[Rfam]
RNA sequence: CGACAAAUAAGGCCGAAUCCGACCCAGUCGGUACGGGGGAUCAUUUUUAUGGGGUGAAUUGCUUAGCUGGCAUAGGGUACCUCUACCCGAACCCGUCAACUAACCUCGGAGGCUAAAGGAGGAACAGCU
Numbered sequence: 001c002g003a004c005a006a007a008u009a010a011g012g013c014c015g016a017a018u019c020c021g022a023c024c025c026a027g028u029c030g031g032u033a034c035g036g037g038g039g040a041u042c043a044u045u046u047u048u049a050u051g052g053g054g055u056g057a058a059u060u061g062c063u064u065a066g067c068u069g070g071c072a073u074a075g076g077g078u079a080c081c082u083c084u085a086c087c088c089g090a091a092c093c094c095g096u097c098a099a100c101u102a103a104c105c106u107c108g109g110a111g112g113c114u115a116a117a118g119g120a121g122g123a124a125c126a127g128c129u
Stems, first nucleotide, its partner, number of pairs: 011114004019031002034108005042051002052094003060072004075088004
RNA: c-di-AMP riboswitch aptamer (ydaO/yuaA leader)